Notes
The family of this 125-nucleotide RNA sequence from Gossypium anomalum is "MIR7504 microRNA precursor family". A search with the family's covariance model found it, with a score of 84 bits.
RNA sequence: AUUAGGAAAAUGACAAAUCAUAUUUUUCUUCCUUAUUUUUAGCAUUUUUAGUUGAAUUUGAAUUUUUUCAGUAGGAAAAAGCUGAAAAUCAAGGAAAAGAAAUUCUGAUUUGUCAUUCUCCUAUU
Numbered sequence: 001a002u003u004a005g006g007a008a009a010a011u012g013a014c015a016a017a018u019c020a021u022a023u024u025u026u027u028c029u030u031c032c033u034u035a036u037u038u039u040u041a042g043c044a045u046u047u048u049u050a051g052u053u054g055a056a057u058u059u060g061a062a063u064u065u066u067u068u069c070a071g072u073a074g075g076a077a078a079a080a081g082c083u084g085a086a087a088a089u090c091a092a093g094g095a096a097a098a099g100a101a102a103u104u105c106u107g108a109u110u111u112g113u114c115a116u117u118c119u120c121c122u123a124u125u
Stems, first nucleotide, its partner, number of pairs: 001125001003123005009117012022104001023102005029096006035089005041083002045079004